RNA sequence: GGGUGCGUGAGUGCGCACCCUCCACAACACAAGGGAUCGCCUGGGUACUCCCUGCCUGGGCGGUCCUUUU
Numbered sequence: 001g002g003g004u005g006c007g008u009g010a011g012u013g014c015g016c017a018c019c020c021u022c023c024a025c026a027a028c029a030c031a032a033g034g035g036a037u038c039g040c041c042u043g044g045g046u047a048c049u050c051c052c053u054g055c056c057u058g059g060g061c062g063g064u065c066c067u068u069u070u
Base pairs, nucleotide, nucleotide: 001020002019003018004017005016006015007014008013032068033067034066035065036064037063038062039061040060041059042058043057044056045055046054
RNA: ftsZ-DE RNA